[Rfam]
RNA: bip internal ribosome entry site (IRES)
Organism: Ovis aries
RNA sequence: CGCUGACCGAGACAUCACAGACGCUUCAACUUAAUCUUUUCGUGCGUUUGAGAGGUAGGUGCUGAGGCCUGUCUUUUCGGACCUGCCCUUCGCAUUGUCCGCUGUUCUCCUGAUCCGGGGCCCUGUCAUCCUCAGCUCGGUAACGUCGGUGCGCUCCUGUGUUUGCGGCCUGUGGCUGGUUUUCCUACGAAGCCCUAUAGCUGCCUGCUGACCGACUGGCCGACGGUGCCGGAAAGAUGAAGCUGUCCCUGGUGGCCGCGGUGCUGCUG
Numbered sequence: 001c002g003c004u005g006a007c008c009g010a011g012a013c014a015u016c017a018c019a020g021a022c023g024c025u026u027c028a029a030c031u032u033a034a035u036c037u038u039u040u041c042g043u044g045c046g047u048u049u050g051a052g053a054g055g056u057a058g059g060u061g062c063u064g065a066g067g068c069c070u071g072u073c074u075u076u077u078c079g080g081a082c083c084u085g086c087c088c089u090u091c092g093c094a095u096u097g098u099c100c101g102c103u104g105u106u107c108u109c110c111u112g113a114u115c116c117g118g119g120g121c122c123c124u125g126u127c128a129u130c131c132u133c134a135g136c137u138c139g140g141u142a143a144c145g146u147c148g149g150u151g152c153g154c155u156c157c158u159g160u161g162u163u164u165g166c167g168g169c170c171u172g173u174g175g176c177u178g179g180u181u182u183u184c185c186u187a188c189g190a191a192g193c194c195c196u197a198u199a200g201c202u203g204c205c206u207g208c209u210g211a212c213c214g215a216c217u218g219g220c221c222g223a224c225g226g227u228g229c230c231g232g233a234a235a236g237a238u239g240a241a242g243c244u245g246u247c248c249c250u251g252g253u254g255g256c257c258g259c260g261g262u263g264c265u266g267c268u269g
Stems, first nucleotide, its partner, number of pairs: 004258002007255003016161005030118002034114003059107001061105002064102001066100002166178005